Nucleotides: 186
Stems, first nucleotide, its partner, number of pairs: 003183013018169002035157003039153006060133003064129003069124001073122003077117003084109002089105005
Number, partner (000 for none) and nucleotide at each position: 001000g002000u003183u004182u005181c006180a007179c008178u009177g010176c011175g012174g013173c014172g015171u016000u017000g018169g019168u020000g021000a022000c023000u024000g025000c026000c027000a028000a029000c030000a031000a032000u033000g034000u035157u036156u037155u038000a039153c040152g041151a042150u043149c044148u045000a046000u047000g048000u049000u050000u051000g052000u053000u054000u055000c056000a057000a058000a059000c060133g061132g062131g063000a064129a065128c066127c067000a068000a069124g070000c071000u072000g073122u074121g075120u076000c077117g078116g079115u080000g081000g082000c083000g084109g085108u086000a087000u088000a089105c090104c091103g092102g093101g094000c095000c096000u097000a098000g099000u100000a101093c102092c103091c104090g105089g106000a107000a108085a109084c110000c111000u112000u113000a114000a115079g116078c117077c118000u119000g120075a121074u122073g123000c124069c125000a126000c127066g128065g129064u130000a131062c132061c133060c134000a135000c136000c137000u138000g139000g140000u141000g142000u143000a144000u145000a146000c147000c148044a149043g150042g151041u152040c153039g154000g155037a156036a157035g158000c159000u160000g161000a162000g163000g164000u165000a166000a167000g168019a169018c170000g171015g172014c173013g174012u175011u176010g177009c178008g179007g180006u181005g182004a183003a184000c185000a186000u
A member of the RNA family "6S / SsrS RNA" from Pseudanabaena sp. FACHB-2040, 186 nucleotides long. The base pairs follow the family's consensus structure, which is taken from published work. For this family Rfam cites "6S RNA regulates E. coli RNA polymerase activity" (Wassarman and Storz, Cell, 2000). Rfam's curators write: E. coli 6S RNA was the first non coding RNA to be sequenced, but its function was unknown until recently.